[Rfam]
RNA sequence: ACGAGGUGCCCCUUUCGGGUUGGUCAGAUAUUGGUGUGGUAAUCACUAUCUUCCCAGCUCAAGGGGCACUUCGUCUAUCAAGACGCGCCGGAAUACCCGCCCCAGGACGGUGGAUCAG
Numbered sequence: 001a002c003g004a005g006g007u008g009c010c011c012c013u014u015u016c017g018g019g020u021u022g023g024u025c026a027g028a029u030a031u032u033g034g035u036g037u038g039g040u041a042a043u044c045a046c047u048a049u050c051u052u053c054c055c056a057g058c059u060c061a062a063g064g065g066g067c068a069c070u071u072c073g074u075c076u077a078u079c080a081a082g083a084c085g086c087g088c089c090g091g092a093a094u095a096c097c098c099g100c101c102c103c104a105g106g107a108c109g110g111u112g113g114a115u116c117a118g
Stems, first nucleotide, its partner, number of pairs: 002073012017060002020057004026051004033044003099116001102113003
Dot-bracket structure: .((((((((((((...((.((((..((((...(((......)))...))))..)))).)).)))))))))))).........................(..(((......)))..)..